[Rfam]
FMN riboswitch aptamer (RFN element): a 147-nucleotide RNA from Salinispira pacifica.
Rfam describes the family as follows. The RFN element is a highly conserved domain that is found frequently in the 5'-untranslated regions of prokaryotic mRNAs that encode for flavin mononucleotide (FMN) biosynthesis and transport proteins.
NCBI's taxonomy places the organism under Bacteria, Pseudomonadati, Spirochaetia, Spirochaetales, Salinispira.
Rfam links the family to the GO term FMN binding.
A search with the family's covariance model found it, with a score of 99 bits.
Nucleotides: 147
Base pairs, nucleotide, nucleotide: 003145004144005143006142007141008140009139010138017055018054019053057127058126059117060116061075062074063073064072070115071114079092080091097113098112099111100110101109119130120129121128
Number, partner (000 for none) and nucleotide at each position: 001000a002000u003145c004144g005143a006142u007141u008140u009139u010138c011000a012000g013000g014000g015000c016000a017055g018054g019053g020000u021000g022000a023000g024000c025000c026000g027000u028000a029000a030000a031000c032000u033000c034000g035000u036000u037000g038000a039000g040000u041000u042000c043000g044000g045000c046000g047000g048000c049000a050000a051000u052000u053019c054018c055017u056000g057127a058126c059117c060116g061075g062074c063073g064072g065000u066000g067000a068000c069000a070115g071114c072064c073063c074062g075061c076000g077000a078000c079092u080091c081000c082000u083000g084000c085000a086000u087000g088000c089000a090000g091080g092079a093000u094000u095000g096000a097113a098112c099111c100110g101109g102000u103000g104000u105000a106000a107000u108000u109101c110100c111099g112098g113097u114071g115070c116060c117059g118000a119130c120129g121128g122000u123000a124000u125000a126058g127057u128121c129120c130119g131000g132000a133000g134000g135000g136000a137000a138010g139009a140008a141007a142006a143005u144004c145003g146000a147000c